[Rfam]
RNA sequence: UCCAGUGGUAGUCAGCUGUCCAGAGCAAUACCGUGCCUGGGCUAGUGUUACACUGCUGGGAGAUGAAGAGCAGUCAUUCCUUCUGGCUGCCGUUGUCCCCGUUCUGGAGACAGCUGGUGCCAGCAAGAAGUGGCAUUGUGCUUCCCUGAGAGCGCACUGAAGGUUCUCUUGUCCUUUUUAGUGCUAGUCUGGAAGCCUACACG
Numbered sequence: 001u002c003c004a005g006u007g008g009u010a011g012u013c014a015g016c017u018g019u020c021c022a023g024a025g026c027a028a029u030a031c032c033g034u035g036c037c038u039g040g041g042c043u044a045g046u047g048u049u050a051c052a053c054u055g056c057u058g059g060g061a062g063a064u065g066a067a068g069a070g071c072a073g074u075c076a077u078u079c080c081u082u083c084u085g086g087c088u089g090c091c092g093u094u095g096u097c098c099c100c101g102u103u104c105u106g107g108a109g110a111c112a113g114c115u116g117g118u119g120c121c122a123g124c125a126a127g128a129a130g131u132g133g134c135a136u137u138g139u140g141c142u143u144c145c146c147u148g149a150g151a152g153c154g155c156a157c158u159g160a161a162g163g164u165u166c167u168c169u170u171g172u173c174c175u176u177u178u179u180a181g182u183g184c185u186a187g188u189c190u191g192g193a194a195g196c197c198u199a200c201a202c203g
Stems, first nucleotide, its partner, number of pairs: 001060009011051002015046004020041001021039003068136001070134002073131002075127001083123004088119004092114001094112004099107002138198001140196006154184003158180006
Rfam assigns this 203-nucleotide sequence from Hirundo rustica to the family "Small nucleolar RNA SNORA74". It is annotated as an H/ACA-box small nucleolar RNA. The organism belongs to Hirundo rustica, within Eukaryota. On this family, see Kiss et al., Mol Cell Biol 1996: "Characterization of the intron-encoded U19 RNA, a new mammalian small nucleolar RNA that is not associated with fibrillarin". Rfam 15.1 lists 1,348 matches to the family in 628 species.